Shown here is a 128-nucleotide RNA from Azotobacter chroococcum, a member of the family "rmf RNA".
The match comes from Rfam's covariance-model search (116 bits).
The family's consensus secondary structure is taken from published work.
By type it is a cis-regulatory element.
[Rfam]
RNA sequence: UUGGAUAGAAAAUCAAUCAAGUCCCUCGCUGCAACGGCGGGGGAAGAAACCGCCACGCCGGCAGCGGUUUCGUCGGCAGCCAAGGCUGCCCGGUCUCGCCAUGAGGCCAAUGGGACAUAACAGUCAAC
Numbered sequence: 001u002u003g004g005a006u007a008g009a010a011a012a013u014c015a016a017u018c019a020a021g022u023c024c025c026u027c028g029c030u031g032c033a034a035c036g037g038c039g040g041g042g043g044a045a046g047a048a049a050c051c052g053c054c055a056c057g058c059c060g061g062c063a064g065c066g067g068u069u070u071c072g073u074c075g076g077c078a079g080c081c082a083a084g085g086c087u088g089c090c091c092g093g094u095c096u097c098g099c100c101a102u103g104a105g106g107c108c109a110a111u112g113g114g115a116c117a118u119a120a121c122a123g124u125c126a127a128c
Stems, first nucleotide, its partner, number of pairs: 022044009047070007075090006092108006